[Rfam]
RNA sequence: ACGAUCUUACUUGAACAGGAUCUGUUCUAUAGGCUCGUACCUCUGUAUCCUUGAUUUCAAAGGAGACAGGUGACCAAGUCUAGUGGAUGAAACAUGACUGCAUGACCAGAGCGUGAUUAACAGCCCUUUGUUGCCCGUGGACUAUACAGGGUCGUAGAGGAUCGUUGGUUUCCAGGGAUGGGGUGGUCUUGCAGUUGUUUGACAGACC
Numbered sequence: 001a002c003g004a005u006c007u008u009a010c011u012u013g014a015a016c017a018g019g020a021u022c023u024g025u026u027c028u029a030u031a032g033g034c035u036c037g038u039a040c041c042u043c044u045g046u047a048u049c050c051u052u053g054a055u056u057u058c059a060a061a062g063g064a065g066a067c068a069g070g071u072g073a074c075c076a077a078g079u080c081u082a083g084u085g086g087a088u089g090a091a092a093c094a095u096g097a098c099u100g101c102a103u104g105a106c107c108a109g110a111g112c113g114u115g116a117u118u119a120a121c122a123g124c125c126c127u128u129u130g131u132u133g134c135c136c137g138u139g140g141a142c143u144a145u146a147c148a149g150g151g152u153c154g155u156a157g158a159g160g161a162u163c164g165u166u167g168g169u170u171u172c173c174a175g176g177g178a179u180g181g182g183g184u185g186g187u188c189u190u191g192c193a194g195u196u197g198u199u200u201g202a203c204a205g206a207c208c
Stems, first nucleotide, its partner, number of pairs: 001038002003035001005033003013027006043069004048064005078207004097195006104188005110166004120155002123152005129146003133142001135140001167173002